Rfam assigns this 94-nucleotide sequence from Apium graveolens to the family "MIR2275 microRNA precursor family". Rfam links the family to the GO terms miRNA-mediated post-transcriptional gene silencing and RISC complex.

[Rfam]
RNA sequence: AUGUCGGAUGUGAGAAUUGGAUAAAACUAAACAUUAGGGCAUAUGAUUUUUUGCGCACUAUGUUUAGUUUUCUCCAAUUUCUCAUCUCUGGCCA
Numbered sequence: 001a002u003g004u005c006g007g008a009u010g011u012g013a014g015a016a017u018u019g020g021a022u023a024a025a026a027c028u029a030a031a032c033a034u035u036a037g038g039g040c041a042u043a044u045g046a047u048u049u050u051u052u053g054c055g056c057a058c059u060a061u062g063u064u065u066a067g068u069u070u071u072c073u074c075c076a077a078u079u080u081c082u083c084a085u086c087u088c089u090g091g092c093c094a
Stems, first nucleotide, its partner, number of pairs: 004091005011084004016078006023071008032062002